[Rfam]
Shown here is a 76-nucleotide RNA from Alligator mississippiensis, a member of the family "Mammalian CPEB3 ribozyme".
Rfam links the family to the GO term RNA nuclease activity.
The mammalian CPEB3 ribozyme is a self cleaving RNA located in the second intron of the CPEB3 gene which belongs to a family of genes regulating messenger RNA polyadenylation.
Pairs were carried over by alignment from the consensus structure, which is taken from published work.
Rfam 15.1 lists 5,706 matches to the family in 197 species.
The match comes from Rfam's covariance-model search (48 bits).

RNA sequence: GGUGGCAAGUUCAAGGCCACAGCAGAAGUGCUCAUGACACAUCCUGUCAGAUUCCAACGAAUCUGCAAAAUCUGUU
Numbered sequence: 001g002g003u004g005g006c007a008a009g010u011u012c013a014a015g016g017c018c019a020c021a022g023c024a025g026a027a028g029u030g031c032u033c034a035u036g037a038c039a040c041a042u043c044c045u046g047u048c049a050g051a052u053u054c055c056a057a058c059g060a061a062u063c064u065g066c067a068a069a070a071u072c073u074g075u076u
Base pairs, nucleotide, nucleotide: 015044016043021076022075023074024073025072026071028040029039030038048065049064050063051062052061053060054059